Shown here is a 98-nucleotide RNA sequence from Amantichitinum ursilacus, a member of the family "Glycine riboswitch aptamer".

RNA sequence: GCCCGUCGUGCAGGAGAGUGUCGAUGCCCGCAAUGGGCCGGCCGCCGAAGGCGCAAGCGCACCCGCAAUCGCUCAGGCAAAAGGACUGUACGACCGCU
Numbered sequence: 001g002c003c004c005g006u007c008g009u010g011c012a013g014g015a016g017a018g019u020g021u022c023g024a025u026g027c028c029c030g031c032a033a034u035g036g037g038c039c040g041g042c043c044g045c046c047g048a049a050g051g052c053g054c055a056a057g058c059g060c061a062c063c064c065g066c067a068a069u070c071g072c073u074c075a076g077g078c079a080a081a082a083g084g085a086c087u088g089u090a091c092g093a094c095c096g097c098u
Stems, first nucleotide, its partner, number of pairs: 006093008020042004044078003047074002051072003057066002
About the family: This family represents the bacterial glycine riboswitch. A search with the family's covariance model found it, with a score of 62 bits.